[Rfam]
Nucleotides: 132
Stems, first nucleotide, its partner, number of pairs: 001056008013044008022036004069127005086115005091109005
Number, partner (000 for none) and nucleotide at each position: 001056u002055c003054c004053u005052g006051c007050a008049u009000c010000g011000a012000a013044a014043g015042u016041g017040a018039u019038c020037a021000c022036g023035g024034g025033c026000u027000g028000c029000c030000u031000g032000u033025g034024c035023c036022c037020u038019g039018g040017u041016c042015a043014u044013u045000g046000a047000u048000a049008g050007u051006g052005c053004a054003g055002g056001g057000a058000g059000a060000g061000g062000a063000a064000u065000u066000g067000c068000u069127g070126a071125a072124a073123g074000a075000c076000a077000u078000u079000u080000c081000c082000c083000u084000g085000u086115g087114u088113u089112u090111g091109a092108a093107g094106g095105g096000c097000c098000c099000a100000g101000c102000g103000g104000u105095c106094c107093c108092u109091u110000c111090c112089a113088a114087a115086c116000c117000c118000u119000g120000g121000a122000g123073c124072u125071u126070u127069c128000c129000a130000a131000c132000a